Shown here is a 120-nucleotide RNA sequence from Pseudomonas sp. ATCC 13867, a member of the family "Pseudomonas sRNA 6". Rfam's curators write: Positively regulates (post-transcriptionally), without Hfq, the expression of PagL, an enzyme responsible for deacylation of lipid A. This reduces the pro-inflammatory property of lipid A. Furthermore, similarly to Salmonella, Sr006 regulation of PagL expression was suggested to aid in polymyxin B resistance. For this family Rfam cites "The single-nucleotide resolution transcriptome of Pseudomonas aeruginosa grown in body temperature" (Wurtzel et al., PLoS Pathog, 2012). Rfam links the family to the GO terms response to antibiotic, positive regulation of translation, ncRNA-mediated and nucleic acid binding. The base pairs follow the family's consensus structure. The source organism's lineage runs through Bacteria, Pseudomonadati, Gammaproteobacteria, Pseudomonadaceae and Pseudomonas.
[Rfam]
RNA sequence: AGUCGCUGCAGCGACGGUGGGCAUACCAGGCUCAUCGUACGGCCGUCGAUACACCAAUCGACGGCCCUCUCCCCCGCGCAUACCUGGCUGCAGCGGCUGACUUUUUCUCCAGGGGCGGUC
Numbered sequence: 001a002g003u004c005g006c007u008g009c010a011g012c013g014a015c016g017g018u019g020g021g022c023a024u025a026c027c028a029g030g031c032u033c034a035u036c037g038u039a040c041g042g043c044c045g046u047c048g049a050u051a052c053a054c055c056a057a058u059c060g061a062c063g064g065c066c067c068u069c070u071c072c073c074c075c076g077c078g079c080a081u082a083c084c085u086g087g088c089u090g091c092a093g094c095g096g097c098u099g100a101c102u103u104u105u106u107c108u109c110c111a112g113g114g115g116c117g118g119u120c
Stems, first nucleotide, its partner, number of pairs: 003021002005018004031115003042065009074096004078091003